[Rfam]
RNA sequence: AUAUUUUACUUGGCCCAGGUGAAAGUAAACCUUUUGCUAAGCAUCAUCAAACUGCGGAGACCUCUUAAAGCUAUUUUAACUAAGUAUAUUAGGUAACUGAUACAUGGCUCAGAUAAUGACUGGAGGUAUAGUAAAAUAAAAAUAGAUGCACGAAAGGAAAUAGGAAAUCCGCAUCCAAGUGCCUAAUAUUUAUAUUAGGUAUGCAGUUCAUCGACUAAUUGGCGAUGGGUAUUAAAUUAAUUUUUAAUACUUAAGAUAUAGUCAGACCUUACUUUAAAAAGUACA
Numbered sequence: 001a002u003a004u005u006u007u008a009c010u011u012g013g014c015c016c017a018g019g020u021g022a023a024a025g026u027a028a029a030c031c032u033u034u035u036g037c038u039a040a041g042c043a044u045c046a047u048c049a050a051a052c053u054g055c056g057g058a059g060a061c062c063u064c065u066u067a068a069a070g071c072u073a074u075u076u077u078a079a080c081u082a083a084g085u086a087u088a089u090u091a092g093g094u095a096a097c098u099g100a101u102a103c104a105u106g107g108c109u110c111a112g113a114u115a116a117u118g119a120c121u122g123g124a125g126g127u128a129u130a131g132u133a134a135a136a137u138a139a140a141a142a143u144a145g146a147u148g149c150a151c152g153a154a155a156g157g158a159a160a161u162a163g164g165a166a167a168u169c170c171g172c173a174u175c176c177a178a179g180u181g182c183c184u185a186a187u188a189u190u191u192a193u194a195u196u197a198g199g200u201a202u203g204c205a206g207u208u209c210a211u212c213g214a215c216u217a218a219u220u221g222g223c224g225a226u227g228g229g230u231a232u233u234a235a236a237u238u239a240a241u242u243u244u245u246a247a248u249a250c251u252u253a254a255g256a257u258a259u260a261g262u263c264a265g266a267c268c269u270u271a272c273u274u275u276a277a278a279a280a281g282u283a284c285a
Stems, first nucleotide, its partner, number of pairs: 020027001042227004048221002053173006063164003175206001179202008211264001213263005229250008270283005